Fluoride riboswitch aptamer (crcB RNA motif): a 75-nucleotide RNA from Aureimonas endophytica.
RNA sequence: GUCAUGAACGGCAAUGGAUUCUGCCGGGCCUCGCGCCGAACCGCUCCCCGAUGGGCUGAUGACUCCUACUCCACC
Numbered sequence: 001g002u003c004a005u006g007a008a009c010g011g012c013a014a015u016g017g018a019u020u021c022u023g024c025c026g027g028g029c030c031u032c033g034c035g036c037c038g039a040a041c042c043g044c045u046c047c048c049c050g051a052u053g054g055g056c057u058g059a060u061g062a063c064u065c066c067u068a069c070u071c072c073a074c075c
Base pairs, nucleotide, nucleotide: 010025011024012023013022016066017065018064020062021061043056044055045054046053
Its family is annotated with positive regulation of gene expression and response to fluoride in the Gene Ontology. NCBI's taxonomy places the organism under Bacteria, Pseudomonadati, Alphaproteobacteria, Hyphomicrobiales, Aureimonas. The match comes from Rfam's covariance-model search (44 bits).